[Rfam]
RNA: c-di-GMP-I-GGC riboswitch aptamer
RNA sequence: UCCGAUAAGGGCAAACCCGGGGCGACCCGGGGACGCAAAGUUACGAAUCCCCCGCGGAUGGUCGGACUGCCGAAG
Numbered sequence: 001u002c003c004g005a006u007a008a009g010g011g012c013a014a015a016c017c018c019g020g021g022g023c024g025a026c027c028c029g030g031g032g033a034c035g036c037a038a039a040g041u042u043a044c045g046a047a048u049c050c051c052c053c054g055c056g057g058a059u060g061g062u063c064g065g066a067c068u069g070c071c072g073a074a075g
Stems, first nucleotide, its partner, number of pairs: 001075001003072002011036002016031006034061001039068004044064003047059003